[Rfam]
RNA sequence: CGCGUGGCUCGUCGGGCAAGCAACGGCAGCGGCCACGGGAUACCCCGGGACUGUGGGAUAGUCUUGAGACCCCGGGCGAGGCGGCGAGGUUAGCGCCUCGGACGAACGGCUGACGGGC
Numbered sequence: 001c002g003c004g005u006g007g008c009u010c011g012u013c014g015g016g017c018a019a020g021c022a023a024c025g026g027c028a029g030c031g032g033c034c035a036c037g038g039g040a041u042a043c044c045c046c047g048g049g050a051c052u053g054u055g056g057g058a059u060a061g062u063c064u065u066g067a068g069a070c071c072c073c074g075g076g077c078g079a080g081g082c083g084g085c086g087a088g089g090u091u092a093g094c095g096c097c098u099c100g101g102a103c104g105a106a107c108g109g110c111u112g113a114c115g116g117g118c
Stems, first nucleotide, its partner, number of pairs: 001039001003037007026054004045075005064101001077100006089114006
Betaproteobacteria-1 RNA: a 118-nucleotide sequence from Caballeronia glathei.
A search with the family's covariance model found it, with a score of 86 bits.